[Rfam]
RNA: ZMP/ZTP riboswitch aptamer (pfl RNA motif)
RNA sequence: UGCAUCUUCCGUAACUGACGGAAUCAAGGUGGGUUACCACCGGGGAGCGGGGGAUUAUAUAUGUCGACCGUCUGGGCUUGCGCA
Numbered sequence: 001u002g003c004a005u006c007u008u009c010c011g012u013a014a015c016u017g018a019c020g021g022a023a024u025c026a027a028g029g030u031g032g033g034u035u036a037c038c039a040c041c042g043g044g045g046a047g048c049g050g051g052g053g054a055u056u057a058u059a060u061a062u063g064u065c066g067a068c069c070g071u072c073u074g075g076g077c078u079u080g081c082g083c084a
Stems, first nucleotide, its partner, number of pairs: 004055009015044002017072005029040004061079001063077003